[Rfam]
RNA sequence: GGAGCAGCUUCUGGAGAGUUCGUUUUAACGACGCCGAAGGAUUCACAAUCUCAGGCAGCAGGACAGAAGACAUUAG
Numbered sequence: 001g002g003a004g005c006a007g008c009u010u011c012u013g014g015a016g017a018g019u020u021c022g023u024u025u026u027a028a029c030g031a032c033g034c035c036g037a038a039g040g041a042u043u044c045a046c047a048a049u050c051u052c053a054g055g056c057a058g059c060a061g062g063a064c065a066g067a068a069g070a071c072a073u074u075a076g
Stems, first nucleotide, its partner, number of pairs: 008069006020031004033056003036052002040050003